Record summary: Shown here is a 359-nucleotide RNA from Psychrobacter arcticus, a member of the family "transfer-messenger RNA". Lineage of the source: Bacteria > Pseudomonadati > Pseudomonadota > Psychrobacter > Psychrobacter arcticus. Rfam's curators put it in the seed alignment.
RNA sequence: GGGGAUGUUCUGGCUUCGACGCUGGUGAUGAAACUCAAUGAUGCAUGUCGAGAGUAUAUGUCCUCUCGUUAAUCAAACAUAUAUUGUUAUAGUCGCAAACGACGAAAAUUACGCUCUAGCAGCUUAAACCCUGUUUACUUGGUUGCUGAUCAUCUACAGUUGGUCAACUAAGUUGAAGCGUCCGCAUGUAGAAGCGCCACAAGUGAUUGUCUCAAUUGCUUGGGUUUAAAAGUAGAGAAUCAUCCUAUCCAUCCUGACUGUCGGAUCGGUGCGGACUAAAACCAAAGACAGAAACUAAACAUGUAGAUUCAUGAGCGUAAUGCUGGCGGACGCGGGUUCAACUCCCGCCAUCUCCACCA
Numbered sequence: 001g002g003g004g005a006u007g008u009u010c011u012g013g014c015u016u017c018g019a020c021g022c023u024g025g026u027g028a029u030g031a032a033a034c035u036c037a038a039u040g041a042u043g044c045a046u047g048u049c050g051a052g053a054g055u056a057u058a059u060g061u062c063c064u065c066u067c068g069u070u071a072a073u074c075a076a077a078c079a080u081a082u083a084u085u086g087u088u089a090u091a092g093u094c095g096c097a098a099a100c101g102a103c104g105a106a107a108a109u110u111a112c113g114c115u116c117u118a119g120c121a122g123c124u125u126a127a128a129c130c131c132u133g134u135u136u137a138c139u140u141g142g143u144u145g146c147u148g149a150u151c152a153u154c155u156a157c158a159g160u161u162g163g164u165c166a167a168c169u170a171a172g173u174u175g176a177a178g179c180g181u182c183c184g185c186a187u188g189u190a191g192a193a194g195c196g197c198c199a200c201a202a203g204u205g206a207u208u209g210u211c212u213c214a215a216u217u218g219c220u221u222g223g224g225u226u227u228a229a230a231a232g233u234a235g236a237g238a239a240u241c242a243u244c245c246u247a248u249c250c251a252u253c254c255u256g257a258c259u260g261u262c263g264g265a266u267c268g269g270u271g272c273g274g275a276c277u278a279a280a281a282c283c284a285a286a287g288a289c290a291g292a293a294a295c296u297a298a299a300c301a302u303g304u305a306g307a308u309u310c311a312u313g314a315g316c317g318u319a320a321u322g323c324u325g326g327c328g329g330a331c332g333c334g335g336g337u338u339c340a341a342c343u344c345c346c347g348c349c350a351u352c353u354c355c356a357c358c359a
Stems, first nucleotide, its partner, number of pairs: 001355007020328008029319001034315004040309003044303005049068005056082006118135005137173006145165001146163004153192006196225003210238004243275003249269002254264002256295001259292001260289003332348005